The family of this 134-nucleotide sequence from Chrysodeixis includens is "U11 spliceosomal RNA". A search with the family's covariance model found it, with a score of 87 bits. Taxonomically the source falls in Chrysodeixis (Eukaryota, Eumetazoa, Bilateria, Allotriocarida).

[Rfam]
Nucleotides: 134
Stems, first nucleotide, its partner, number of pairs: 008080005013028005029051005035046004052075007101132004106128005113122002
Number, partner (000 for none) and nucleotide at each position: 001000a002000a003000a004000a005000a006000g007000g008080g009079u010078g011077u012076u013028u014027g015026c016025c017024g018000c019000u020000u021000a022000g023000a024017u025016g026015g027014c028013a029051c030050a031049c032048g033047c034000u035046g036045c037044c038043g039000g040000a041000c042000g043038c044037g045036g046035c047033g048032c049031g050030u051029g052075g053074g054073g055072u056071a057070u058069g059000g060000c061000u062000a063000u064000c065000a066000a067000g068000a069058c070057a071056u072055a073054c074053u075052c076012a077011a078010c079009a080008c081000a082000u083000a084000a085000u086000u087000u088000u089000u090000g091000u092000a093000a094000c095000g096000g097000g098000a099000a100000g101132a102131g103130g104129c105000a106128g107127u108126c109125g110124g111000u112000a113122a114121c115000c116000u117000a118000c119000c120000a121114g122113u123000a124110c125109c126108g127107a128106c129104g130103c131102c132101u133000c134000c